RNA: Purine riboswitch aptamer
Organism: Bacillus sp. J14TS2
Nucleotides: 101
Stems, first nucleotide, its partner, number of pairs: 019086001022083004029049006058077005
Number, partner (000 for none) and nucleotide at each position: 001000c002000u003000g004000c005000c006000a007000g008000u009000u010000a011000a012000u013000u014000c015000g016000g017000a018000u019086a020000a021000a022083u023082g024081u025080a026000u027000a028000a029049c030048c031047u032046c033045a034044a035000u036000a037000a038000u039000a040000u041000g042000g043000u044034u045033u046032g047031a048030g049029g050000g051000u052000c053000u054000c055000u056000a057000c058077c059076a060075g061074g062073a063000a064000c065000c066000a067000a068000u069000u070000a071000a072000a073062u074061c075060c076059u077058g078000a079000c080025u081024a082023c083022a084000a085000a086019u087000u088000u089000a090000u091000u092000c093000u094000u095000u096000u097000g098000u099000a100000g101000u